The family of this 459-nucleotide RNA from Phascolarctos cinereus is "Vertebrate telomerase RNA".
[Rfam]
RNA sequence: UCAGGCGAGCGGGGUCUGUCUCUUUAUGAUUUCUAACCAGUGAGUGUCACGGCUGCCCAGUUCGCUGUUUUUGUGGCUGACUUUCAGCGGGCAGGAGGCAAGGGGCCGAGCCCCAGGAGCGCGCAAAAAACAUCAGCCACGGCAGAAACUCCAGCUCGUGGCCCGUCUGGCCCGUCCGAGCCCAGCCCCGGUCCGAACGCCCUGGGGGCGCCCCCCGCGGAGCCCUGGCUGCCCACGAGCAGAGGCGGCGGCUGUCUCAGGGCCCCUACGUGCGUGGGCGCCCACUGCUCCCGCCAAGAGUUCGGCUCCGUCAGCCUCGGGGUGCGCGGGGGGCCGUGAGGCGAGCCCCAAGGCCGGGCGGGGUCGGGGGCACAGGGAGAGUAAUCAUGAGGUGCAUUCAGAUGGCUGGGCUCUCCCUCGAGUUGUGGGAGCCGCCCCCAGCGCGCCCCUCAUACACAA
Numbered sequence: 001u002c003a004g005g006c007g008a009g010c011g012g013g014g015u016c017u018g019u020c021u022c023u024u025u026a027u028g029a030u031u032u033c034u035a036a037c038c039a040g041u042g043a044g045u046g047u048c049a050c051g052g053c054u055g056c057c058c059a060g061u062u063c064g065c066u067g068u069u070u071u072u073g074u075g076g077c078u079g080a081c082u083u084u085c086a087g088c089g090g091g092c093a094g095g096a097g098g099c100a101a102g103g104g105g106c107c108g109a110g111c112c113c114c115a116g117g118a119g120c121g122c123g124c125a126a127a128a129a130a131c132a133u134c135a136g137c138c139a140c141g142g143c144a145g146a147a148a149c150u151c152c153a154g155c156u157c158g159u160g161g162c163c164c165g166u167c168u169g170g171c172c173c174g175u176c177c178g179a180g181c182c183c184a185g186c187c188c189c190g191g192u193c194c195g196a197a198c199g200c201c202c203u204g205g206g207g208g209c210g211c212c213c214c215c216c217g218c219g220g221a222g223c224c225c226u227g228g229c230u231g232c233c234c235a236c237g238a239g240c241a242g243a244g245g246c247g248g249c250g251g252c253u254g255u256c257u258c259a260g261g262g263c264c265c266c267u268a269c270g271u272g273c274g275u276g277g278g279c280g281c282c283c284a285c286u287g288c289u290c291c292c293g294c295c296a297a298g299a300g301u302u303c304g305g306c307u308c309c310g311u312c313a314g315c316c317u318c319g320g321g322g323u324g325c326g327c328g329g330g331g332g333g334c335c336g337u338g339a340g341g342c343g344a345g346c347c348c349c350a351a352g353g354c355c356g357g358g359c360g361g362g363g364u365c366g367g368g369g370g371c372a373c374a375g376g377g378a379g380a381g382u383a384a385u386c387a388u389g390a391g392g393u394g395c396a397u398u399c400a401g402a403u404g405g406c407u408g409g410g411c412u413c414u415c416c417c418u419c420g421a422g423u424u425g426u427g428g429g430a431g432c433c434g435c436c437c438c439c440a441g442c443g444c445g446c447c448c449c450u451c452a453u454a455c456a457c458a459a
Base pairs, nucleotide, nucleotide: 005159006158007157008156009155010154011152012151013150014149016145017144018143019142020141060092061091062090063089064088065087066086067085076137077136078135079134080133082130083129084128162376163375165373166372168370199354200353201352203350204349205348206347207346212332213331214330215329216328217327218326224321225320226319227318228317247295248294249293250292251291254289256287260282261281298308299307300306389451390450391449392448394446395445397443398440408437409436410435411434414430415429416428417427

The match comes from Rfam's covariance-model search (110 bits). By type it is a non-coding RNA gene. Pairs were carried over by alignment from the consensus structure, which is taken from published work. Rfam links the family to the GO terms telomerase activity, telomere maintenance via telomerase and telomerase catalytic core complex. A reference for the family is Chen et al. (2000), "Secondary structure of vertebrate telomerase RNA", Cell. Clan: Telomerase clan. The organism belongs to Phascolarctos, within Eukaryota. Telomerase is a ribonucleoprotein reverse transcriptase that synthesises telomeric DNA. Telomerase RNAs differ greatly in sequence and structure between vertebrates, ciliates and yeasts, but they share a 5' pseudoknot structure close to the template sequence. Vertebrate telomerase RNAs have a 3' H/ACA snoRNA-like domain.